The family of this 68-nucleotide RNA from Bombyx mori is "mir-2774 microRNA precursor family". The family's consensus secondary structure was predicted with RNAalifold. On this family, see Liu et al., BMC Genomics 2010: "MicroRNAs of Bombyx mori identified by Solexa sequencing". Its family is annotated with RISC complex and miRNA-mediated post-transcriptional gene silencing in the Gene Ontology.
RNA sequence: ACUGUAAUUGGACCGUCGGUCUACUGAGCAAUUACACUCGCUCCGAUGGAAGGUAUUCCGUUUGUCAU
Numbered sequence: 001a002c003u004g005u006a007a008u009u010g011g012a013c014c015g016u017c018g019g020u021c022u023a024c025u026g027a028g029c030a031a032u033u034a035c036a037c038u039c040g041c042u043c044c045g046a047u048g049g050a051a052g053g054u055a056u057u058c059c060g061u062u063u064g065u066c067a068u
Base pairs, nucleotide, nucleotide: 004065005064006063010059011058012057015054016053017052020050021049022048023047024045026043027042028041029040
The organism belongs to Bombyx, within Eukaryota.